RNA: c-di-AMP riboswitch aptamer (ydaO/yuaA leader)
RNA sequence: UUCUUCAAUACGCCCUGAAUUUUCUGAACGGUGGCGUGGAGGGAACAGAAAGCGGGGGAACCAAUUCUGGGGCUUAUUUCUAAGUAAAUUAGAAAGGAAAAACUCUCAUUUCUAGCCCGUCAGCUAACCCCGUAGGCAUUGAGGGAGGACUA
Numbered sequence: 001u002u003c004u005u006c007a008a009u010a011c012g013c014c015c016u017g018a019a020u021u022u023u024c025u026g027a028a029c030g031g032u033g034g035c036g037u038g039g040a041g042g043g044a045a046c047a048g049a050a051a052g053c054g055g056g057g058g059a060a061c062c063a064a065u066u067c068u069g070g071g072g073c074u075u076a077u078u079u080c081u082a083a084g085u086a087a088a089u090u091a092g093a094a095a096g097g098a099a100a101a102a103c104u105c106u107c108a109u110u111u112c113u114a115g116c117c118c119g120u121c122a123g124c125u126a127a128c129c130c131c132g133u134a135g136g137c138a139u140u141g142a143g144g145g146a147g148g149a150c151u152a
Base pairs, nucleotide, nucleotide: 012137013136014135020051021050022049052133053132054131055130056129057128062069063068070118071117072116078094079093080092081091097112098111099110100109